[Rfam]
RNA sequence: AACAUGGGAAUCAAACGACACACACAUGUCGACACCUUUUCCAGGGUGCCCCCUGUCUCAUGACAGAGGGUUUGGAACAGGGGAUAUGUGGACGACUAAC
Numbered sequence: 001a002a003c004a005u006g007g008g009a010a011u012c013a014a015a016c017g018a019c020a021c022a023c024a025c026a027u028g029u030c031g032a033c034a035c036c037u038u039u040u041c042c043a044g045g046g047u048g049c050c051c052c053c054u055g056u057c058u059c060a061u062g063a064c065a066g067a068g069g070g071u072u073u074g075g076a077a078c079a080g081g082g083g084a085u086a087u088g089u090g091g092a093c094g095a096c097u098a099a100c
Stems, first nucleotide, its partner, number of pairs: 023090008035081003039077005048072001050070003